RNA sequence: AACUCUAACCUAUGCAAGUUGCUCUGGAUAAGAGCAUUUGCUAAAUAACAAAAA
Numbered sequence: 001a002a003c004u005c006u007a008a009c010c011u012a013u014g015c016a017a018g019u020u021g022c023u024c025u026g027g028a029u030a031a032g033a034g035c036a037u038u039u040g041c042u043a044a045a046u047a048a049c050a051a052a053a054a
Stems, first nucleotide, its partner, number of pairs: 013043001014041003020036006
Overview:
The family of this 54-nucleotide sequence from Megalops atlanticus is "UnaL2 LINE 3' element". For this family Rfam cites "Solution structure of an RNA stem-loop derived from the 3' conserved region of eel LINE UnaL2" (Baba et al., RNA, 2004). The match comes from Rfam's covariance-model search (55 bits). Pairs were carried over by alignment from the consensus structure, which is taken from published work. Rfam describes the family as follows. The eel long interspersed element (LINE) UnaL2 and its partner short interspersed element (SINE) share a conserved 3' tail containing a stem-loop that is critical for their retrotransposition. Presumably, the first step of retrotransposition is the recognition of their 3' tails by UnaL2-encoded reverse transcriptase. The solution structure of a 17-nucleotide RNA derived from the 3' tail of UnaL2 was determined by NMR.